This 72-nucleotide RNA sequence from Alligator mississippiensis belongs to the Rfam family "Mammalian CPEB3 ribozyme". The literature on the family includes a 2004 paper in Nature by Teixeira et al., "Autocatalytic RNA cleavage in the human beta-globin pre-mRNA promotes transcription termination". The base pairs follow the family's consensus structure, which is taken from published work.
[Rfam]
RNA sequence: CAAGUUCAAGGCCACAGAAGAAGUGCUUAUGACAUGGCCCUGUGGGAUUCCAAGUAAUCCUUGAAUUCUGCU
Numbered sequence: 001c002a003a004g005u006u007c008a009a010g011g012c013c014a015c016a017g018a019a020g021a022a023g024u025g026c027u028u029a030u031g032a033c034a035u036g037g038c039c040c041u042g043u044g045g046g047a048u049u050c051c052a053a054g055u056a057a058u059c060c061u062u063g064a065a066u067u068c069u070g071c072u
Base pairs, nucleotide, nucleotide: 010039011038012037013036016072017071019069020068021067022066023035024034025033044061045060046059047058048057049056

NCBI's taxonomy places the organism under Eukaryota, Sarcopterygii, Dipnotetrapodomorpha, Amniota, Alligator.